[Rfam]
RNA sequence: AUACUGACGUAAUCGCUGCACAGUCAUCUGUGUAGAGGAAAGUCCAUGCUCACACAGACUGAGAUGUCUGUAGUGUUCGUGCCUGACGAAAUCAUAAGUCAGGGUACUAACGGCAGCAAAAAAUCCUACGUUCAACUGAAUAUGGAUGAGUAUGCUUGAAAGUGCCACAGAGACGCAGCUAGAUUGGAAACAAUCUAGGUGGAACGAGGUAAACCCCACGAGUGAGCAACCCAAAUAUUGGUAGGGGCAUCCUUGAGUAGAGAAUUCAAUCGAAAAAGGGACGAGCAAUUUGGCUCGUAGAUAGAUGAUUACGACCAGAGUACGAGGUUGACAACCGUCUGUAGUACAAUGGUACAGAACAUGGCUUAUCAAG
Numbered sequence: 001a002u003a004c005u006g007a008c009g010u011a012a013u014c015g016c017u018g019c020a021c022a023g024u025c026a027u028c029u030g031u032g033u034a035g036a037g038g039a040a041a042g043u044c045c046a047u048g049c050u051c052a053c054a055c056a057g058a059c060u061g062a063g064a065u066g067u068c069u070g071u072a073g074u075g076u077u078c079g080u081g082c083c084u085g086a087c088g089a090a091a092u093c094a095u096a097a098g099u100c101a102g103g104g105u106a107c108u109a110a111c112g113g114c115a116g117c118a119a120a121a122a123a124u125c126c127u128a129c130g131u132u133c134a135a136c137u138g139a140a141u142a143u144g145g146a147u148g149a150g151u152a153u154g155c156u157u158g159a160a161a162g163u164g165c166c167a168c169a170g171a172g173a174c175g176c177a178g179c180u181a182g183a184u185u186g187g188a189a190a191c192a193a194u195c196u197a198g199g200u201g202g203a204a205c206g207a208g209g210u211a212a213a214c215c216c217c218a219c220g221a222g223u224g225a226g227c228a229a230c231c232c233a234a235a236u237a238u239u240g241g242u243a244g245g246g247g248c249a250u251c252c253u254u255g256a257g258u259a260g261a262g263a264a265u266u267c268a269a270u271c272g273a274a275a276a277a278g279g280g281a282c283g284a285g286c287a288a289u290u291u292g293g294c295u296c297g298u299a300g301a302u303a304g305a306u307g308a309u310u311a312c313g314a315c316c317a318g319a320g321u322a323c324g325a326g327g328u329u330g331a332c333a334a335c336c337g338u339c340u341g342u343a344g345u346a347c348a349a350u351g352g353u354a355c356a357g358a359a360c361a362u363g364g365c366u367u368a369u370c371a372a373g
Base pairs, nucleotide, nucleotide: 004373005372007369008313009312010311011310012309013308014307016035017034018033019032020031021030040367041366042365044364045363046362047361048360049226050225051224052223053222054071055070056069057068058067059066077221078220079219080218081217082103083102084101085100086099087098104111105109112216113215115156116155117154118153123147124146125145126144130141131140132139162214163213164210165209166208179198180197181196182195183194184193185192186191230246231245232244250280251279252278253277254276281298282297283296284295285294286293315352316351317350320347321346322345323344

Shown here is a 373-nucleotide sequence from Cerasibacillus quisquiliarum, a member of the family "Bacterial RNase P class B". About the family: Ribonuclease P (RNase P) is a ubiquitous endoribonuclease, found in archaea, bacteria and eukarya as well as chloroplasts and mitochondria. Its best characterised activity is the generation of mature 5'-ends of tRNAs by cleaving the 5'-leader elements of precursor-tRNAs. Cellular RNase Ps are ribonucleoproteins. The family is grouped with related families in Rfam's "RNaseP clan". Rfam classes the family as a ribozyme.